[Rfam]
RNA sequence: AGUAAGAGACAGACAGAGACGGGGAACAGACAGAGCAUGGAUGGAACUACUAACAGAGCAUCUGUUUUUGGCUCUAUCCCUGCACUGCCUCUUCCCUGGCUACUUCUCUUUCUCUCUUU
Numbered sequence: 001a002g003u004a005a006g007a008g009a010c011a012g013a014c015a016g017a018g019a020c021g022g023g024g025a026a027c028a029g030a031c032a033g034a035g036c037a038u039g040g041a042u043g044g045a046a047c048u049a050c051u052a053a054c055a056g057a058g059c060a061u062c063u064g065u066u067u068u069u070g071g072c073u074c075u076a077u078c079c080c081u082g083c084a085c086u087g088c089c090u091c092u093u094c095c096c097u098g099g100c101u102a103c104u105u106c107u108c109u110u111u112c113u114c115u116c117u118u119u
Stems, first nucleotide, its partner, number of pairs: 017101002020098007028090002031087003035083003039079002044074002